This 106-nucleotide RNA from Ricinus communis belongs to the Rfam family "Small nucleolar RNA Z107/R87". Gene Ontology terms of the family: RNA processing and nucleolus. By type it is a C/D-box small nucleolar RNA. It scores 82 bits against the family's covariance model.
RNA sequence: GAUCGCAGUGAUGACUCAGGAAUUUCAAGCUCAACAGACCGGAAUGCAGGCUUCUCUUCUUUAUAGAGAAUUUUGCGUGUCGACCUUCCCGCUGACCUGAGCGUUC
Numbered sequence: 001g002a003u004c005g006c007a008g009u010g011a012u013g014a015c016u017c018a019g020g021a022a023u024u025u026c027a028a029g030c031u032c033a034a035c036a037g038a039c040c041g042g043a044a045u046g047c048a049g050g051c052u053u054c055u056c057u058u059c060u061u062u063a064u065a066g067a068g069a070a071u072u073u074u075g076c077g078u079g080u081c082g083a084c085c086u087u088c089c090c091g092c093u094g095a096c097c098u099g100a101g102c103g104u105u106c
Stems, first nucleotide, its partner, number of pairs: 001106002004103003
Dot-bracket structure: ((.(((..............................................................................................))).))